[Rfam]
RNA sequence: CCAGUCGGCCGGACGGCCGCUGCUUUGGCAGAGGAAAGUCCGGGCUCCAUGGAAACACGGUGCCGGAUAACGUCCGGCGAGGGUGACCUCAGGGAAAGCGCCACAGAAAGCAAACCGCCCUGAGCCUUCGGGUUCAGGGUAAGGGUGAAAGGGUGCGGUAAGAGCGCACCGCGCGGGUGGCAACACAUCGCGGCACGGCAAGCCCCACCGGGAGCAAAACCGAAUAGGGAUGACGGAAGGCGGCAACGUCUUCAGCCUGUUUCCAGGGCGUCGUCCGGGUUGGUUGCUUGAGGCGGAUCGCAAGAUCCGUCCCAGAGGAAUGGCCGUCACGCGCGUGGGCUUGCCCAAGCGCCAUACAGAACCCGGCUUACAGGCCGGCUGGCAAU
Numbered sequence: 001c002c003a004g005u006c007g008g009c010c011g012g013a014c015g016g017c018c019g020c021u022g023c024u025u026u027g028g029c030a031g032a033g034g035a036a037a038g039u040c041c042g043g044g045c046u047c048c049a050u051g052g053a054a055a056c057a058c059g060g061u062g063c064c065g066g067a068u069a070a071c072g073u074c075c076g077g078c079g080a081g082g083g084u085g086a087c088c089u090c091a092g093g094g095a096a097a098g099c100g101c102c103a104c105a106g107a108a109a110g111c112a113a114a115c116c117g118c119c120c121u122g123a124g125c126c127u128u129c130g131g132g133u134u135c136a137g138g139g140u141a142a143g144g145g146u147g148a149a150a151g152g153g154u155g156c157g158g159u160a161a162g163a164g165c166g167c168a169c170c171g172c173g174c175g176g177g178u179g180g181c182a183a184c185a186c187a188u189c190g191c192g193g194c195a196c197g198g199c200a201a202g203c204c205c206c207a208c209c210g211g212g213a214g215c216a217a218a219a220c221c222g223a224a225u226a227g228g229g230a231u232g233a234c235g236g237a238a239g240g241c242g243g244c245a246a247c248g249u250c251u252u253c254a255g256c257c258u259g260u261u262u263c264c265a266g267g268g269c270g271u272c273g274u275c276c277g278g279g280u281u282g283g284u285u286g287c288u289u290g291a292g293g294c295g296g297a298u299c300g301c302a303a304g305a306u307c308c309g310u311c312c313c314a315g316a317g318g319a320a321u322g323g324c325c326g327u328c329a330c331g332c333g334c335g336u337g338g339g340c341u342u343g344c345c346c347a348a349g350c351g352c353c354a355u356a357c358a359g360a361a362c363c364c365g366g367c368u369u370a371c372a373g374g375c376c377g378g379c380u381g382g383c384a385a386u
Base pairs, nucleotide, nucleotide: 001382002381003380004379005378006377007376008375009374010373011371012328013327014326015325016324017323018322020031021030022029023028036369037368038367040366041365042364043363044362045214046213047212048211055262058210059209060208061207062206063077064076065075066074067073078092079090080089081088082087093205094204098203099202100199101198102197115144116143117140118139119138120137121136122135123134124133125132152170153169154168155167156166157165171194172192173191174190175189176188177186178185179184218285219284220283221282228276229275230274231273232272233271255269256268257267258266292311293310294309295308296307297306298305299304
This 386-nucleotide sequence from Methylovirgula sp. 4M-Z18 belongs to the Rfam family "Bacterial RNase P class A".
Rfam classes the family as a ribozyme.
Ribonuclease P (RNase P) is a ubiquitous endoribonuclease, found in archaea, bacteria and eukarya as well as chloroplasts and mitochondria.